[Rfam]
RNA: small nucleolar RNA snoR137
RNA sequence: GUUGCUUCUUACUGGUAAACUGGUCUCAAAAUGGGGUCACAGAAGCAUAAGUUACUGGAAUAAUAUAUGUUCAUGUUGCAGAAGCAUAUAUUAGUUGAAUAAUAUAUCUCAGCAGCAUCGGCAUAUUCUAUUUUGUUGCAUUUUGCUACCUGUCUCCUGGUACAUUU
Numbered sequence: 001g002u003u004g005c006u007u008c009u010u011a012c013u014g015g016u017a018a019a020c021u022g023g024u025c026u027c028a029a030a031a032u033g034g035g036g037u038c039a040c041a042g043a044a045g046c047a048u049a050a051g052u053u054a055c056u057g058g059a060a061u062a063a064u065a066u067a068u069g070u071u072c073a074u075g076u077u078g079c080a081g082a083a084g085c086a087u088a089u090a091u092u093a094g095u096u097g098a099a100u101a102a103u104a105u106a107u108c109u110c111a112g113c114a115g116c117a118u119c120g121g122c123a124u125a126u127u128c129u130a131u132u133u134u135g136u137u138g139c140a141u142u143u144u145g146c147u148a149c150c151u152g153u154c155u156c157c158u159g160g161u162a163c164a165u166u167u
Stems, first nucleotide, its partner, number of pairs: 003086006016073001018071003021067001098161001100159002104155001111147003115143001117141002119138001